[Rfam]
Shown here is a 59-nucleotide sequence from Micrococcus sp. HMSC067E09, a member of the family "msiK RNA". The source organism's lineage runs through Bacteria, Actinomycetes, Micrococcales, Micrococcaceae and Micrococcus.
RNA sequence: CACCCCCCUCUUUCACUACGGAUCGUCGGGCACGUGCCUGCCCGUGAAAGGACCCCCAU
Numbered sequence: 001c002a003c004c005c006c007c008c009u010c011u012u013u014c015a016c017u018a019c020g021g022a023u024c025g026u027c028g029g030g031c032a033c034g035u036g037c038c039u040g041c042c043c044g045u046g047a048a049a050g051g052a053c054c055c056c057c058a059u
Stems, first nucleotide, its partner, number of pairs: 009051007027044006